[Rfam]
RNA sequence: GGUUUAAAGGGUGCGUAGGUGGCUUGUUAAGUCAGCGGUGAAAGGUUCGAGCUCAACUUGGACAUUGCCGUUGAAACUGGCGAGCUUGAGUGUAGAUGAGGUAGGCGGAAUGCAUGGUGUAGCGGUGAAAUGCUUAGAUAUCAUGCAGAACUCCGAUUGCGAAGGCAGCUUACUAAGGUACAACUGACACUGAAGCACGAAAGCGUGGGUAUCAAACAGGAUUAGAUACCCUGGUAGUCCACGCAGUAAACGAUGAUUACUGGGCGUAUGCGAUAUACAGUAUGCUCCUGAGCGAAAGCGUUAAGUAAUCCACCUGGGGAGUACGCCGGCAACGGUGAAACUCAAAGGAAU
Numbered sequence: 001g002g003u004u005u006a007a008a009g010g011g012u013g014c015g016u017a018g019g020u021g022g023c024u025u026g027u028u029a030a031g032u033c034a035g036c037g038g039u040g041a042a043a044g045g046u047u048c049g050a051g052c053u054c055a056a057c058u059u060g061g062a063c064a065u066u067g068c069c070g071u072u073g074a075a076a077c078u079g080g081c082g083a084g085c086u087u088g089a090g091u092g093u094a095g096a097u098g099a100g101g102u103a104g105g106c107g108g109a110a111u112g113c114a115u116g117g118u119g120u121a122g123c124g125g126u127g128a129a130a131u132g133c134u135u136a137g138a139u140a141u142c143a144u145g146c147a148g149a150a151c152u153c154c155g156a157u158u159g160c161g162a163a164g165g166c167a168g169c170u171u172a173c174u175a176a177g178g179u180a181c182a183a184c185u186g187a188c189a190c191u192g193a194a195g196c197a198c199g200a201a202a203g204c205g206u207g208g209g210u211a212u213c214a215a216a217c218a219g220g221a222u223u224a225g226a227u228a229c230c231c232u233g234g235u236a237g238u239c240c241a242c243g244c245a246g247u248a249a250a251c252g253a254u255g256a257u258u259a260c261u262g263g264g265c266g267u268a269u270g271c272g273a274u275a276u277a278c279a280g281u282a283u284g285c286u287c288c289u290g291a292g293c294g295a296a297a298g299c300g301u302u303a304a305g306u307a308a309u310c311c312a313c314c315u316g317g318g319g320a321g322u323a324c325g326c327c328g329g330c331a332a333c334g335g336u337g338a339a340a341c342u343c344a345a346a347g348g349a350a351u
Stems, first nucleotide, its partner, number of pairs: 001314003009311001011198004016192001018191003022085007030078002032074009045063007089185003092181003097176001100174007107151001111147008122133003159166002203244006213237001217233004255310006263288002266285006292299002316343003325336004
Record summary: The family of this 351-nucleotide part of an RNA from Porphyromonas sp. COT-290 OH860 is "Bacterial small subunit ribosomal RNA". A reference for the family is Yusupov et al. (2001), "Crystal structure of the ribosome at 5.5 A resolution", Science. The family is grouped with related families in Rfam's "SSU clan".